[Rfam]
RNA sequence: CCUCUAAAAUGCGCGCAUACUUAAUGAUUGGUAAUUCCUUACUGGUUAAGAGUUUCGGACUUAAGUAUGAUGUUGUGUUUGCAUAUUGUUUGGGAAACCAAACAGAGUAACUUAUCUUAAGUUACUUAUUUUCACUUCCUGUAUAUUUAUUUUAGACCCUUUUGGUUAAACACCGCUCUAUCGAGCGGUGUUUUUUUAU
Numbered sequence: 001c002c003u004c005u006a007a008a009a010u011g012c013g014c015g016c017a018u019a020c021u022u023a024a025u026g027a028u029u030g031g032u033a034a035u036u037c038c039u040u041a042c043u044g045g046u047u048a049a050g051a052g053u054u055u056c057g058g059a060c061u062u063a064a065g066u067a068u069g070a071u072g073u074u075g076u077g078u079u080u081g082c083a084u085a086u087u088g089u090u091u092g093g094g095a096a097a098c099c100a101a102a103c104a105g106a107g108u109a110a111c112u113u114a115u116c117u118u119a120a121g122u123u124a125c126u127u128a129u130u131u132u133c134a135c136u137u138c139c140u141g142u143a144u145a146u147u148u149a150u151u152u153u154a155g156a157c158c159c160u161u162u163u164g165g166u167u168a169a170a171c172a173c174c175g176c177u178c179u180a181u182c183g184a185g186c187g188g189u190g191u192u193u194u195u196u197u198a199u
Stems, first nucleotide, its partner, number of pairs: 009061001012058001023053001025048010086105008106126008145166003169192008
The family of this 199-nucleotide RNA sequence from Pasteurella multocida is "GcvB RNA". Taxonomically the source falls in Pasteurella multocida subsp. multocida (Bacteria, Pseudomonadati, Pseudomonadota, Gammaproteobacteria). Rfam's curators put it in the seed alignment. The gcvB gene encodes a small untranslated RNA involved in expression of the dipeptide and oligopeptide transport systems in Escherichia coli. Its family is annotated with mRNA binding and regulation of gene expression in the Gene Ontology.